[Rfam]
RNA sequence: GUGCCUUAAACUAAUGAGUAAGGAAAACAAAGCAAGUGGUGGGAGCCGCUUGCAGCGCUGAACCAAAAAGGCGCAAGAAUUUAUGGAGGGGUUAUAGGCUGGCCAGGUGUGGACGCUGCUUACUUUGCAGGACCCACUUGUGCGGGCCUCCC
Numbered sequence: 001g002u003g004c005c006u007u008a009a010a011c012u013a014a015u016g017a018g019u020a021a022g023g024a025a026a027a028c029a030a031a032g033c034a035a036g037u038g039g040u041g042g043g044a045g046c047c048g049c050u051u052g053c054a055g056c057g058c059u060g061a062a063c064c065a066a067a068a069a070g071g072c073g074c075a076a077g078a079a080u081u082u083a084u085g086g087a088g089g090g091g092u093u094a095u096a097g098g099c100u101g102g103c104c105a106g107g108u109g110u111g112g113a114c115g116c117u118g119c120u121u122a123c124u125u126u127g128c129a130g131g132a133c134c135c136a137c138u139u140g141u142g143c144g145g146g147c148c149u150c151c152c
Stems, first nucleotide, its partner, number of pairs: 004023005032053008055074005090152002096149005102143001104140002107137003111133001116130004

The family of this 152-nucleotide RNA from Arachis hypogaea is "U12 minor spliceosomal RNA". A search with the family's covariance model found it, with a score of 97 bits. The family has 62 seed sequences and 2,106 matches in Rfam 15.1. Pairs were carried over by alignment from the consensus structure.